[Rfam]
RNA sequence: UUAAAGAAUUUGAAGACUUCAACUUAUAGACAUGGAGUAUUUGAAUACUUCGACUUGCAUCUUGAAGAAUUUGAAGACUUCAACU
Numbered sequence: 001u002u003a004a005a006g007a008a009u010u011u012g013a014a015g016a017c018u019u020c021a022a023c024u025u026a027u028a029g030a031c032a033u034g035g036a037g038u039a040u041u042u043g044a045a046u047a048c049u050u051c052g053a054c055u056u057g058c059a060u061c062u063u064g065a066a067g068a069a070u071u072u073g074a075a076g077a078c079u080u081c082a083a084c085u
Base pairs, nucleotide, nucleotide: 001083002082004080005079006078009075010074011073012072013071014070017067018066019065020064021063025059027057028056033052034051035050036049037048
RNA: MIR8024 microRNA precursor family